This 148-nucleotide RNA sequence from Loigolactobacillus coryniformis belongs to the Rfam family "Ribosomal protein L10 leader". The literature on the family includes a 1994 paper in Prog Nucleic Acid Res Mol Biol by Zengel and Lindahl, "Diverse mechanisms for regulating ribosomal protein synthesis in Escherichia coli". The family's consensus secondary structure was predicted with CMfinder. This family is a putative r-protein leader autoregulatory structure found in B. subtilis and other low-GC Gram-positive bacteria. It is located in the 5' untranslated regions of mRNAs encoding ribosomal proteins L10 and L12 (rplJ-rplL). A Rho-independent transcription terminator structure that is probably involved in regulation is included at the 3' end. It scores 52 bits against the family's covariance model.
RNA sequence: UUCUCGGUUAUAUUUCUACCUAAGACUCAGGUGGCUUUGCCUUAAACGUUUAGUUCACUAAACGGCCCGCCGAGGAGAAAGUUUGUACGGUUUAAACAGACUCUCUGCGGCGUUGUGUCUUUGUACACAGCGUUUUUUUAUUAGGAGA
Numbered sequence: 001u002u003c004u005c006g007g008u009u010a011u012a013u014u015u016c017u018a019c020c021u022a023a024g025a026c027u028c029a030g031g032u033g034g035c036u037u038u039g040c041c042u043u044a045a046a047c048g049u050u051u052a053g054u055u056c057a058c059u060a061a062a063c064g065g066c067c068c069g070c071c072g073a074g075g076a077g078a079a080a081g082u083u084u085g086u087a088c089g090g091u092u093u094a095a096a097c098a099g100a101c102u103c104u105c106u107g108c109g110g111c112g113u114u115g116u117g118u119c120u121u122u123g124u125a126c127a128c129a130g131c132g133u134u135u136u137u138u139u140a141u142u143a144g145g146a147g148a
Base pairs, nucleotide, nucleotide: 028069030067031066032065033041034040035039110133111132112131113130114129115128116127117126118125